[Rfam]
RNA sequence: UGGGCUGAACGAGAGUUCCAGGUCCACCAAAGCGGCGGGGAGACUCCUC
Numbered sequence: 001u002g003g004g005c006u007g008a009a010c011g012a013g014a015g016u017u018c019c020a021g022g023u024c025c026a027c028c029a030a031a032g033c034g035g036c037g038g039g040g041a042g043a044c045u046c047c048u049c
Stems, first nucleotide, its partner, number of pairs: 001026006007018004

A member of the RNA family "DUF3800-XI RNA", 49 nucleotides long. The base pairs follow the family's consensus structure, which is taken from published work. The family's RNA type in Rfam is small RNA. Actinobacteria, Firmicutes, Proteobacteria, Spirochaetes (1 example). The sequence is in the family's curated seed alignment.